[Rfam]
RNA sequence: CCAGACGCAGCUCCGCGCAAUCGAAAGAUGAAGCGUUGUUCGGAGC
Numbered sequence: 001c002c003a004g005a006c007g008c009a010g011c012u013c014c015g016c017g018c019a020a021u022c023g024a025a026a027g028a029u030g031a032a033g034c035g036u037u038g039u040u041c042g043g044a045g046c
Stems, first nucleotide, its partner, number of pairs: 011045005017039003

A member of the RNA family "uup RNA" from Hafnia alvei, 46 nucleotides long. The source organism's lineage runs through Bacteria, Pseudomonadati, Gammaproteobacteria, Enterobacterales and Hafnia alvei. Rfam classes the family as a cis-regulatory element.